[Rfam]
Shown here is a 45-nucleotide sequence from Gottfriedia endophytica, a member of the family "PreQ1 (pre queuosine) riboswitch aptamer".

RNA sequence: CAAAACGUGGUUCGAAAACCUCCCACGUUAAAAAACUAAGGAGAG
Numbered sequence: 001c002a003a004a005a006c007g008u009g010g011u012u013c014g015a016a017a018a019c020c021u022c023c024c025a026c027g028u029u030a031a032a033a034a035a036c037u038a039a040g041g042a043g044a045g
Base pairs, nucleotide, nucleotide: 006027007026008025009024010023016037
On this family, see Reader et al., J Biol Chem 2004: "Identification of four genes necessary for biosynthesis of the modified nucleoside queuosine". Rfam describes the family as follows. This family is a bacterial riboswitch that binds to the metabolite preQ1, an intermediate in the biosynthesis of the modified nucleoside queuosine from GTP. One example of this riboswitch is located in the leader of the Bacillus subtilis ykvJKLM (queCDEF) operon which encodes four genes necessary for queuosine production. PreQ1 binding to the riboswitch aptamer is thought to induce premature transcription termination within the leader to down-regulate expression of these genes. The organism belongs to Gottfriedia, within Bacteria.